[Rfam]
RNA sequence: UGGUCAUUACCAAGGCUUGUAGAAUGCUGUUUCUCAUUUGCUGUGGACAUGACCGUAACAAAUUUCCCACUAGGUUUUCUAUAUGUUGUGUUCCUAGCAGUCGGCCUGUUGGGAACAUUU
Numbered sequence: 001u002g003g004u005c006a007u008u009a010c011c012a013a014g015g016c017u018u019g020u021a022g023a024a025u026g027c028u029g030u031u032u033c034u035c036a037u038u039u040g041c042u043g044u045g046g047a048c049a050u051g052a053c054c055g056u057a058a059c060a061a062a063u064u065u066c067c068c069a070c071u072a073g074g075u076u077u078u079c080u081a082u083a084u085g086u087u088g089u090g091u092u093c094c095u096a097g098c099a100g101u102c103g104g105c106c107u108g109u110u111g112g113g114a115a116c117a118u119u120u
Base pairs, nucleotide, nucleotide: 003053004052005051006050007049010046011045012044026041027040029038066113067112068111069110073106074105075104076103084099085098086097

This 120-nucleotide sequence from Castor canadensis belongs to the Rfam family "Small nucleolar RNA SNORA32". Rfam classes the family as an H/ACA-box small nucleolar RNA. About the family: ACA32 is a member of the H/ACA class of snoRNA that guide the sites of modification of uridines to pseudouridines. Pairs were carried over by alignment from the consensus structure, which was predicted with RNAfold. The match comes from Rfam's covariance-model search (118 bits). The organism belongs to Castor, within Eukaryota. Rfam links the family to the GO terms RNA processing and nucleolus.